This 67-nucleotide sequence belongs to the Rfam family "L31-Corynebacteriaceae ribosomal protein leader". Rfam's curators put it in the seed alignment. Its Rfam clan is "Ribosomal Protein L31 Leader clan". By type it is a cis-regulatory leader.

[Rfam]
RNA sequence: ACUCAGGCACGAUCCGGGCCUCUGCGAGCCAUGCCCUGGAACCGACCUGAUGUUCAAUCCUGAGGGA
Dot-bracket structure: ((.((((.....((((((................)))))).....))))..))..............
Numbered sequence: 001a002c003u004c005a006g007g008c009a010c011g012a013u014c015c016g017g018g019c020c021u022c023u024g025c026g027a028g029c030c031a032u033g034c035c036c037u038g039g040a041a042c043c044g045a046c047c048u049g050a051u052g053u054u055c056a057a058u059c060c061u062g063a064g065g066g067a
Stems, first nucleotide, its partner, number of pairs: 001053002004049004013040006